This 69-nucleotide sequence from Prevotella sp. CAG:474 belongs to the Rfam family "Bacteroidetes FopS (family of paralogous sRNAs)". It scores 77 bits against the family's covariance model. The family has 12 seed sequences and 822 matches in Rfam 15.1. Rfam classes the family as a small RNA. From the family's description: The RNA-binding protein RbpB and BTncRNA_FopS sRNA are involved in the post-transcription regulation of polysaccharide utilisation loci (PUL). FopS sRNAs function as post-transcriptional repressors by binding to the vicinity of the start codon of the first mRNA of target PUL polycistrons, typically corresponding to the cognate SusC homolog, impeding translation of the respective glycan transporter. On this family, see Ruttiger et al., Nat Commun 2025: "The global RNA-binding protein RbpB is a regulator of polysaccharide utilization in Bacteroides thetaiotaomicron". The organism belongs to Prevotella, within Bacteria.
RNA sequence: GUGUUUUUCAUGGUAUUAGAUUUAAGGUUAACAAAGAUUGGGACUCAGCGGAGUCCCUUUUUUAUUUUU
Numbered sequence: 001g002u003g004u005u006u007u008u009c010a011u012g013g014u015a016u017u018a019g020a021u022u023u024a025a026g027g028u029u030a031a032c033a034a035a036g037a038u039u040g041g042g043a044c045u046c047a048g049c050g051g052a053g054u055c056c057c058u059u060u061u062u063u064a065u066u067u068u069u
Stems, first nucleotide, its partner, number of pairs: 040057007